Group II catalytic intron D1-D4-1: a 79-nucleotide RNA sequence from Nitrococcus mobilis. Rfam's curators write: Group II introns are found in rRNA, tRNA and mRNA of organelles in fungi, plants and protists, and also in mRNA in bacteria. Gene Ontology term of the family: Group II intron splicing. NCBI's taxonomy places the organism under Bacteria, Pseudomonadota, Gammaproteobacteria, Ectothiorhodospiraceae, Nitrococcus mobilis.
RNA sequence: CGCGUCUUGCGGCAACGCAAGGCGUGAUGGGGCAGAAGUCAGCAGAGGCCAUAGUAGCCGUGGGCACGCGGUGAAGGGC
Numbered sequence: 001c002g003c004g005u006c007u008u009g010c011g012g013c014a015a016c017g018c019a020a021g022g023c024g025u026g027a028u029g030g031g032g033c034a035g036a037a038g039u040c041a042g043c044a045g046a047g048g049c050c051a052u053a054g055u056a057g058c059c060g061u062g063g064g065c066a067c068g069c070g071g072u073g074a075a076g077g078g079c
Stems, first nucleotide, its partner, number of pairs: 001026002004023008039046002048079003057072006